RNA sequence: UGGACGAAAGAUACAUACGAUCUUACAUCUUCAAAAUGGUAUGUAAGCUCGUUUUAGUAUCUUUCGUCUC
Numbered sequence: 001u002g003g004a005c006g007a008a009a010g011a012u013a014c015a016u017a018c019g020a021u022c023u024u025a026c027a028u029c030u031u032c033a034a035a036a037u038g039g040u041a042u043g044u045a046a047g048c049u050c051g052u053u054u055u056a057g058u059a060u061c062u063u064u065c066g067u068c069u070c
Base pairs, nucleotide, nucleotide: 002069003068004067005066006065007064008063009062010061011060012059013058014057015055017052018051019050020049022047023046024045025044026043027042
Shown here is a 70-nucleotide RNA from Caenorhabditis elegans, a member of the family "mir-787 microRNA precursor family".
Lineage of the source: Eukaryota > Bilateria > Nematoda > Chromadorea > Caenorhabditis.